[Rfam]
RNA sequence: UACUACCAAAUCCUGUCUUCACCUCCACGUGGUGACCCCUGGGAGCUUUUUCUUAACGAAAAGCUGCAGACGGAGAAGG
Numbered sequence: 001u002a003c004u005a006c007c008a009a010a011u012c013c014u015g016u017c018u019u020c021a022c023c024u025c026c027a028c029g030u031g032g033u034g035a036c037c038c039c040u041g042g043g044a045g046c047u048u049u050u051u052c053u054u055a056a057c058g059a060a061a062a063g064c065u066g067c068a069g070a071c072g073g074a075g076a077a078g079g
Stems, first nucleotide, its partner, number of pairs: 012079003016075001018073002021033003044065007052058001
Rfam assigns this 79-nucleotide RNA sequence from Hermetia illucens to the family "drz-agam-1 ribozyme". The literature on the family includes a 2009 paper in Science by Webb et al., "Widespread occurrence of self-cleaving ribozymes". Lineage of the source: Eukaryota > Metazoa > Arthropoda > Pterygota > Hermetia. Pairs were carried over by alignment from the consensus structure, which is taken from published work.